[Rfam]
RNA: Group II catalytic intron D1-D4-1
RNA sequence: UAACCUAUUAAAUGUUGGACAGUUGAACUAUUAGAAGUCAGCAGAGGUCAUAGUACCAUGAGAUACGCUUUAUCAUAGGAAGGAC
Numbered sequence: 001u002a003a004c005c006u007a008u009u010a011a012a013u014g015u016u017g018g019a020c021a022g023u024u025g026a027a028c029u030a031u032u033a034g035a036a037g038u039c040a041g042c043a044g045a046g047g048u049c050a051u052a053g054u055a056c057c058a059u060g061a062g063a064u065a066c067g068c069u070u071u072a073u074c075a076u077a078g079g080a081a082g083g084a085c
Stems, first nucleotide, its partner, number of pairs: 001025002005022002008019002011016001038045002047085003056078001058076004